[Rfam]
RNA sequence: GCAAAUCGACAGGGGCGUCCCGCAGCGCGGGGCUGAGAAGCACCCUUUGAACCUGAACCGGAUCAUGCCGGCGGAGGGAGUCGCUUCGACGCUGAC
Dot-bracket structure: ......((((((((.((((((.......)))))......)..)))).....(((...((((......))))...)))..)))).............

Record summary: The family of this 96-nucleotide RNA sequence from Mangrovicoccus algicola is "TPP riboswitch aptamer (THI element)". Lineage of the source: Bacteria > Pseudomonadati > Pseudomonadota > Paracoccaceae > Mangrovicoccus. Pairs were carried over by alignment from the consensus structure, which is taken from published work. A search with the family's covariance model found it, with a score of 67 bits.